A member of the RNA family "RNA anti-toxin A" from Melissococcus plutonius, 91 nucleotides long.
The family's RNA type in Rfam is antitoxin RNA.
A reference for the family is Fozo et al. (2010), "Abundance of type I toxin-antitoxin systems in bacteria: searches for new candidates and discovery of novel families", Nucleic Acids Res.
Lineage of the source: Bacteria > Bacillati > Lactobacillales > Melissococcus > Melissococcus plutonius.

[Rfam]
RNA sequence: UAAGAGUAUAAAAAAGAGAGAUAUGCUGAAACAUAUCCCUCAAUUGUAGAACCGUUUAAGACGGUGGCAAAAAUUUAAAGAUUAUUAAAAA
Numbered sequence: 001u002a003a004g005a006g007u008a009u010a011a012a013a014a015a016g017a018g019a020g021a022u023a024u025g026c027u028g029a030a031a032c033a034u035a036u037c038c039c040u041c042a043a044u045u046g047u048a049g050a051a052c053c054g055u056u057u058a059a060g061a062c063g064g065u066g067g068c069a070a071a072a073a074u075u076u077a078a079a080g081a082u083u084a085u086u087a088a089a090a091a
Stems, first nucleotide, its partner, number of pairs: 022035004051065006